Plastid-ccsA-ndhD-1 3UTR RNA: a 55-nucleotide RNA from Lonicera calcarata. The sequence is in the family's curated seed alignment. Pairs were carried over by alignment from the consensus structure, which was predicted with LocARNA. On this family, see Richter et al., Plant Commun 2023: "Retrograde signaling in plants: A critical review focusing on the GUN pathway and beyond". By type it is a cis-regulatory element. The source organism's lineage runs through Eukaryota, Streptophyta, Streptophytina, Caprifoliaceae and Lonicera.

[Rfam]
RNA sequence: AACCGGCGAGAACCAUGUGAAUCAAGUAACAUAGUGAUUCACAGGGUUCUCACAA
Dot-bracket structure: .....(.(((((((.(((((((((..........))))))))).))))))).)..